[Rfam]
RNA sequence: ACACGGGAAAGGAGGUGGUCCGAGACAUGAUUUCUCUACGGACGCGUGAGGUGGCUGCUCGCUAGCAGCGCUCCCUCGUAGGACGUCGCUGCCGGCAAUCCACGGCAGCCACCCGACCCCCAGGUGGUCCGGACCCGUCCGCCGGACCCGCUCGUCGGGGCAGUCUCACUGCUCCGCGGGCACGCCUGGGGGUCGCUCCAU
Dot-bracket structure: .............((((((..................................)))))).(((.((.(((..((......))....))).)).))).................(((((((((((((.(((((.........)))))....................................)))))))))))))......
Actinobacteria sRNA Ms_IGR-5: a 201-nucleotide sequence from Nocardioides marinus. Pairs were carried over by alignment from the consensus structure. The organism belongs to Nocardioides, within Bacteria. The match comes from Rfam's covariance-model search (100 bits).